[Rfam]
RNA: HIV gag stem loop 3 (GSL3)
Organism: Lentivirus humimdef1
RNA sequence: GGCCAGGGGGAAAGAAACAAUAUAGACUAAAACAUCUAGUAUGGGCAAGCAGGGAGCUGGACAGGUUCGCGCUUAACCCUGGCC
Numbered sequence: 001g002g003c004c005a006g007g008g009g010g011a012a013a014g015a016a017a018c019a020a021u022a023u024a025g026a027c028u029a030a031a032a033c034a035u036c037u038a039g040u041a042u043g044g045g046c047a048a049g050c051a052g053g054g055a056g057c058u059g060g061a062c063a064g065g066u067u068c069g070c071g072c073u074u075a076a077c078c079c080u081g082g083c084c
Stems, first nucleotide, its partner, number of pairs: 001084008